[Rfam]
Rfam assigns this 91-nucleotide RNA from Paenibacillus baekrokdamisoli to the family "c-di-GMP-I-GGC riboswitch aptamer".
RNA sequence: AUCGAUAAUAGCAAACUUGUCGAAAGGCAAGGACGCAAAGCUAAAGGAUCUAAUGUUCUUAACGGAACGAUUGAUAGCCUGGCUGCCGAAA
Dot-bracket structure: ..((......((...((((((....))))))..[))..((((..((((((......................))).])))))))..))...
The match comes from Rfam's covariance-model search (62 bits).